[Rfam]
RNA sequence: CGCGGGUCUGGCGACUCCCCCCGGUCGCCAGUCUCGCGAAGGUGGCCCCUGUCUUCCCCCAGACGGGGGCCACCGCUC
Numbered sequence: 001c002g003c004g005g006g007u008c009u010g011g012c013g014a015c016u017c018c019c020c021c022c023g024g025u026c027g028c029c030a031g032u033c034u035c036g037c038g039a040a041g042g043u044g045g046c047c048c049c050u051g052u053c054u055u056c057c058c059c060c061a062g063a064c065g066g067g068g069g070c071c072a073c074c075g076c077u078c
Base pairs, nucleotide, nucleotide: 002037003036004035005034006033008031009030010029011028012027013026041074042073043072044071045070046069047068048067049066050065051064052063053062
RNA: 6C RNA